[Rfam]
RNA sequence: AUUUUCUUGUCGGAGUGCUGCUUGUUCCUGCAAACAGCUGAGACCGCGCCAGCGGAAUCCGUAGAACCUGUCGGGGUAAUGCCUGCGUAGGAAACAAGCUGUCAAACGCC
Numbered sequence: 001a002u003u004u005u006c007u008u009g010u011c012g013g014a015g016u017g018c019u020g021c022u023u024g025u026u027c028c029u030g031c032a033a034a035c036a037g038c039u040g041a042g043a044c045c046g047c048g049c050c051a052g053c054g055g056a057a058u059c060c061g062u063a064g065a066a067c068c069u070g071u072c073g074g075g076g077u078a079a080u081g082c083c084u085g086c087g088u089a090g091g092a093a094a095c096a097a098g099c100u101g102u103c104a105a106a107c108g109c110c
Base pairs, nucleotide, nucleotide: 006098007097008096009095010094011061012060013059014058016055017038018037019036020035045054046053047052067091068090069089070088072085073084074083075082